[Rfam]
RNA sequence: CCGGCUCCGGUUCACCCGCGUGCGCGACGGCGGGACCCGGCGGCC
Numbered sequence: 001c002c003g004g005c006u007c008c009g010g011u012u013c014a015c016c017c018g019c020g021u022g023c024g025c026g027a028c029g030g031c032g033g034g035a036c037c038c039g040g041c042g043g044c045c
Base pairs, nucleotide, nucleotide: 003045004044005043007040008039009038010037015034016033017032018031019030020028021027
The record is a 45-nucleotide sequence from Pseudonocardia sp. C8, which matches "L31-Actinobacteria ribosomal protein leader" in Rfam. NCBI's taxonomy places the organism under Bacteria, Bacillati, Pseudonocardiales, Pseudonocardiaceae, Pseudonocardia. The base pairs follow the family's consensus structure, which is taken from published work.